Source information:
Rfam assigns this 102-nucleotide RNA sequence from Centaurea solstitialis to the family "Small nucleolar RNA R64/Z200 family". Rfam 15.1 lists 748 matches to the family in 228 species.

RNA sequence: UGGUUGCUUUGAUGAAUUAUGAAUUCAAUCACAUGUCAGACUUCAGAGGUUUCUUUUAACGAAGGAAUCAAUGAGAUUAAAAUUCAUAAGCCUGAGCAGAUA
Numbered sequence: 001u002g003g004u005u006g007c008u009u010u011g012a013u014g015a016a017u018u019a020u021g022a023a024u025u026c027a028a029u030c031a032c033a034u035g036u037c038a039g040a041c042u043u044c045a046g047a048g049g050u051u052u053c054u055u056u057u058a059a060c061g062a063a064g065g066a067a068u069c070a071a072u073g074a075g076a077u078u079a080a081a082a083u084u085c086a087u088a089a090g091c092c093u094g095a096g097c098a099g100a101u102a
Base pairs, nucleotide, nucleotide: 001102002101004099005098006097007096048069049068050067051066052065053064054063055062056061

Rfam links the family to the GO terms RNA processing and nucleolus. For this family Rfam cites "Purified box C/D snoRNPs are able to reproduce site-specific 2'-O-methylation of target RNA in vitro" (Galardi et al., Mol Cell Biol, 2002). NCBI's taxonomy places the organism under Eukaryota, Euphyllophyta, eudicotyledons, asterids, Centaurea. Rfam classes the family as a C/D-box small nucleolar RNA.